Shown here is a 266-nucleotide RNA sequence from Lachancea kluyveri, a member of the family "Small nucleolar RNA snR191".
A reference for the family is Badis et al. (2003), "A snoRNA that guides the two most conserved pseudouridine modifications within rRNA confers a growth advantage in yeast", RNA.
It is one of the family's seed sequences.
NCBI's taxonomy places the organism under Eukaryota, Fungi, Saccharomycetales, Lachancea, Lachancea kluyveri.
By type it is an H/ACA-box small nucleolar RNA.
RNA sequence: CACCAAAACUCUUUGUCAGGGCGUUUUCUAUUCCACCGAGAAUACAAUUCAUCAACGAAAAGGUCUGUUACAGUUUUGGAAGAUUAAUACCACUCGCCUUCUACUUUUCUCCCGUUCUGGGAGAACUUGGGUAGAAACAGGUGGGUAACCACCGUUUUGGUGGUAUGCCACCGCUUUUAGAGUGAGGAGGAUCUUCAGAGUUAAGCUUUGGAUGGGUACACCCCUUCAAGAUAAUUCCAUUGCUUGUAGUAAUGAACCUCACAUUA
Numbered sequence: 001c002a003c004c005a006a007a008a009c010u011c012u013u014u015g016u017c018a019g020g021g022c023g024u025u026u027u028c029u030a031u032u033c034c035a036c037c038g039a040g041a042a043u044a045c046a047a048u049u050c051a052u053c054a055a056c057g058a059a060a061a062g063g064u065c066u067g068u069u070a071c072a073g074u075u076u077u078g079g080a081a082g083a084u085u086a087a088u089a090c091c092a093c094u095c096g097c098c099u100u101c102u103a104c105u106u107u108u109c110u111c112c113c114g115u116u117c118u119g120g121g122a123g124a125a126c127u128u129g130g131g132u133a134g135a136a137a138c139a140g141g142u143g144g145g146u147a148a149c150c151a152c153c154g155u156u157u158u159g160g161u162g163g164u165a166u167g168c169c170a171c172c173g174c175u176u177u178u179a180g181a182g183u184g185a186g187g188a189g190g191a192u193c194u195u196c197a198g199a200g201u202u203a204a205g206c207u208u209u210g211g212a213u214g215g216g217u218a219c220a221c222c223c224c225u226u227c228a229a230g231a232u233a234a235u236u237c238c239a240u241u242g243c244u245u246g247u248a249g250u251a252a253u254g255a256a257c258c259u260c261a262c263a264u265u266a
Base pairs, nucleotide, nucleotide: 003079004078005077006076007075019066020065021064022063024061025060026059027058028057029044030043031042032041033040091184092183093182094181095180099136100135101134102133103132104131105130107125108124109123110122111121112120113119140172141171142170143169144168148164149163150162151161152160153159154158187260188259189258190257192255193254195252202246203245204244205243206242209239210238211237212236215224216223